[Rfam]
RNA sequence: ACGGAAGCCGGCAAGGCCAGGGUCGACCCGGAAGAGAAGGAUCGAUCUCCCGAGCCGCACUUCCCAGUACGGAUAGCGGUACCCACGCGGAGCCACAGCCGCGAAGAUGGCAGAAGUGUUGUGGGCCUGCGUAAUUGCGGAACGUAAUCGGUCCCGACAGCCCUUUGGGUGGGGCUGCAGCCGAGGAGCGCCGCACGAGCGCCGAGGCCACCCACGCAACCCACGUUGGACGCUUGGUAACCGUGUACCGUACUAGCGGGCGGCGAGCCGAUUUCAUCGGAGCGCCGCCCGCUUCGUUUC
Numbered sequence: 001a002c003g004g005a006a007g008c009c010g011g012c013a014a015g016g017c018c019a020g021g022g023u024c025g026a027c028c029c030g031g032a033a034g035a036g037a038a039g040g041a042u043c044g045a046u047c048u049c050c051c052g053a054g055c056c057g058c059a060c061u062u063c064c065c066a067g068u069a070c071g072g073a074u075a076g077c078g079g080u081a082c083c084c085a086c087g088c089g090g091a092g093c094c095a096c097a098g099c100c101g102c103g104a105a106g107a108u109g110g111c112a113g114a115a116g117u118g119u120u121g122u123g124g125g126c127c128u129g130c131g132u133a134a135u136u137g138c139g140g141a142a143c144g145u146a147a148u149c150g151g152u153c154c155c156g157a158c159a160g161c162c163c164u165u166u167g168g169g170u171g172g173g174g175c176u177g178c179a180g181c182c183g184a185g186g187a188g189c190g191c192c193g194c195a196c197g198a199g200c201g202c203c204g205a206g207g208c209c210a211c212c213c214a215c216g217c218a219a220c221c222c223a224c225g226u227u228g229g230a231c232g233c234u235u236g237g238u239a240a241c242c243g244u245g246u247a248c249c250g251u252a253c254u255a256g257c258g259g260g261c262g263g264c265g266a267g268c269c270g271a272u273u274u275c276a277u278c279g280g281a282g283c284g285c286c287g288c289c290c291g292c293u294u295c296g297u298u299u300c
Base pairs, nucleotide, nucleotide: 003064004063006061007060009057010056011055015051016050020048021047024044025043026042028040029039066254067253068252069251070250071249072248076244077243078242079241080240083237084236085235087233088232089231093228098111099110100109118220119219120218121217122216123215124209125208126207127206128205129202130201131200132199136195137194138193139192140191144189145188148184149183150182151181152180158177159176160175161174162173163172164171256292257291258290259289260288261287262286263285264284265283268280269279270278
This 300-nucleotide RNA from Mycobacterium sinensis belongs to the Rfam family "Mycobacterium smegmatis small RNA 1". Rfam describes the family as follows. Mycobacterium smegmatis small RNA 1 is highly expressed during stationary phase of growth. It scores 241 bits against the family's covariance model. The family's consensus secondary structure was predicted with CMfinder. A reference for the family is Hnilicova et al. (2014), "Ms1, a novel sRNA interacting with the RNA polymerase core in mycobacteria", Nucleic Acids Res.